[Rfam]
RNA: Small nucleolar RNA U54
RNA sequence: AGCUCAAUGACUUCAACCAGACACAUUGGUUAUAUAUGCUAUUCUGGUUGCCGCUGUUGAAAAAAAAAAUGAUUCAUGAGAGCU
Numbered sequence: 001a002g003c004u005c006a007a008u009g010a011c012u013u014c015a016a017c018c019a020g021a022c023a024c025a026u027u028g029g030u031u032a033u034a035u036a037u038g039c040u041a042u043u044c045u046g047g048u049u050g051c052c053g054c055u056g057u058u059g060a061a062a063a064a065a066a067a068a069a070u071g072a073u074u075c076a077u078g079a080g081a082g083c084u
Stems, first nucleotide, its partner, number of pairs: 001084005
Dot-bracket structure: (((((..........................................................................)))))